[Rfam]
RNA: ZMP/ZTP riboswitch aptamer (pfl RNA motif)
Organism: Streptomyces avermitilis
RNA sequence: GGUGUGGGCCGUGACUGGCGCUGAGGUGGAGCACCACCGGGGAGCGGUCUGACGAGACGUCGUUGCCGUGCGCCUGGGCGAGUGGU
Numbered sequence: 001g002g003u004g005u006g007g008g009c010c011g012u013g014a015c016u017g018g019c020g021c022u023g024a025g026g027u028g029g030a031g032c033a034c035c036a037c038c039g040g041g042g043a044g045c046g047g048u049c050u051g052a053c054g055a056g057a058c059g060u061c062g063u064u065g066c067c068g069u070g071c072g073c074c075u076g077g078g079c080g081a082g083u084g085g086u
Stems, first nucleotide, its partner, number of pairs: 005051008015041002017074005026037004063081005